Rfam assigns this 119-nucleotide sequence from Geotalea daltonii to the family "Molybdenum/Tungsten riboswitch aptamer (Moco RNA motif)". Rfam links the family to the GO terms molybdenum ion binding, regulation of gene expression and tungstate binding. Pairs were carried over by alignment from the consensus structure, which is taken from published work. It scores 62 bits against the family's covariance model. The source organism's lineage runs through Bacteria, Pseudomonadati, Desulfuromonadia, Geobacteraceae and Geotalea daltonii.
RNA sequence: UGCUCGAACUUUCUCCGAGCCUGUCCGCCUACCGGGAAUAUUCCCCAUGGUGUCAGGCCUGUGGGCUCUGCUGGAAACGGCAGGACCUUCCUUUGAAAAGGAGAACCUCUCGCCACGCU
Numbered sequence: 001u002g003c004u005c006g007a008a009c010u011u012u013c014u015c016c017g018a019g020c021c022u023g024u025c026c027g028c029c030u031a032c033c034g035g036g037a038a039u040a041u042u043c044c045c046c047a048u049g050g051u052g053u054c055a056g057g058c059c060u061g062u063g064g065g066c067u068c069u070g071c072u073g074g075a076a077a078c079g080g081c082a083g084g085a086c087c088u089u090c091c092u093u094u095g096a097a098a099a100g101g102a103g104a105a106c107c108u109c110u111c112g113c114c115a116c117g118c119u
Base pairs, nucleotide, nucleotide: 004112006110011105012104013103014102015101016100019058020057021056022055023054025052027051028050029049034045035044036043063088064087065086067084068083069082070081071080072079073078089096090095